[Rfam]
tRNA: a 97-nucleotide RNA sequence from Pseudogymnoascus sp. VKM F-4246. The match comes from Rfam's covariance-model search (49 bits). Pairs were carried over by alignment from the consensus structure, which is taken from published work. The organism belongs to Pseudogymnoascus, within Eukaryota.

RNA sequence: GCUCAUAUGGCCGAGUGGUCUAAGGCGAUGGUUUUAAGAAAUUUCUUCUGAAACACCAUUAUCGAAAGAUGCGUGAGUUCGAACCUCACUGUGAGCA
Numbered sequence: 001g002c003u004c005a006u007a008u009g010g011c012c013g014a015g016u017g018g019u020c021u022a023a024g025g026c027g028a029u030g031g032u033u034u035u036a037a038g039a040a041a042u043u044u045c046u047u048c049u050g051a052a053a054c055a056c057c058a059u060u061a062u063c064g065a066a067a068g069a070u071g072c073g074u075g076a077g078u079u080c081g082a083a084c085c086u087c088a089c090u091g092u093g094a095g096c097a
Stems, first nucleotide, its partner, number of pairs: 001096007010026003028059005073089005